[Rfam]
RNA sequence: ACCGCCAUGGACGGCGGUGGUUCCAAGCAGGAGCGAUGUUUUAAAACAGGGUGGUUUGCAAAGUUUUAAAACUCGCAGAUUAGAUUUUGACAUGGACGUCAAAAUCUAAUCCAUU
Numbered sequence: 001a002c003c004g005c006c007a008u009g010g011a012c013g014g015c016g017g018u019g020g021u022u023c024c025a026a027g028c029a030g031g032a033g034c035g036a037u038g039u040u041u042u043a044a045a046a047c048a049g050g051g052u053g054g055u056u057u058g059c060a061a062a063g064u065u066u067u068a069a070a071a072c073u074c075g076c077a078g079a080u081u082a083g084a085u086u087u088u089g090a091c092a093u094g095g096a097c098g099u100c101a102a103a104a105u106c107u108a109a110u111c112c113a114u115u
Base pairs, nucleotide, nucleotide: 001018002017003016004015005014006013034075035074036073038072039071040070041069042068043067044066045065046064047063078111079110080109081108082107083106084105085104086103087102088101089100090099091098
RNA: TD-2 RNA
Organism: Treponema phagedenis